The family of this 169-nucleotide sequence from Mycobacteroides franklinii is "M-box riboswitch aptamer (ykoK leader)".
RNA sequence: UCAGCACCUUGCUAGGUGAGGCUCCUACGUGAAUACAGGCCACUGAUCUGACGACGUCGAGAGACGCCCAAGGUUAGGACAGGUCUUCCCGGACUAAGGGAUGACCCGAAGUGGCUUCCGCCCGCGGACACGUCACGUAGUGCCGAAGCCCUGACGAGAGGGGUGCGCU
Number, nucleotide and partner (000 for none) at each position: 001u000002c000003a000004g000005c165006a164007c163008c162009u161010u160011g155012c000013u097014a000015g150016g149017u148018g000019a000020g144021g143022c142023u000024c000025c140026u139027a138028c137029g136030u135031g134032a133033a000034u000035a000036c000037a000038g000039g115040c114041c113042a112043c111044u000045g075046a074047u073048c072049u071050g000051a000052c000053g000054a000055c066056g065057u064058c063059g000060a000061g000062a000063g058064a057065c056066g055067c000068c000069c000070a000071a049072g048073g047074u046075u045076a000077g000078g000079a000080c000081a000082g106083g105084u104085c103086u000087u000088c100089c099090c098091g000092g000093a000094c000095u000096a000097a013098g090099g089100g088101a000102u000103g085104a084105c083106c082107c000108g000109a000110a000111g043112u042113g041114g040115c039116u000117u128118c127119c126120g000121c000122c000123c000124g000125c000126g119127g118128a117129c000130a000131c000132g000133u032134c031135a030136c029137g028138u027139a026140g025141u000142g022143c021144c020145g000146a000147a000148g017149c016150c015151c000152u000153g000154a000155c011156g000157a000158g000159a000160g010161g009162g008163g007164u006165g005166c000167g000168c000169u000

M-box riboswitch, also know as ykoK leader is described as a metaloregulatory RNA that sense divalent metals and function as a genetic control element of genes related to divalent metal transport in bacteria. It was first reported upstream of the B.subtilis ykoK gene and genes with related functions in other bacteria. Rfam 15.1 lists 1,095 matches to the family in 932 species. A reference for the family is Barrick et al. (2004), "New RNA motifs suggest an expanded scope for riboswitches in bacterial genetic control", Proc Natl Acad Sci U S A.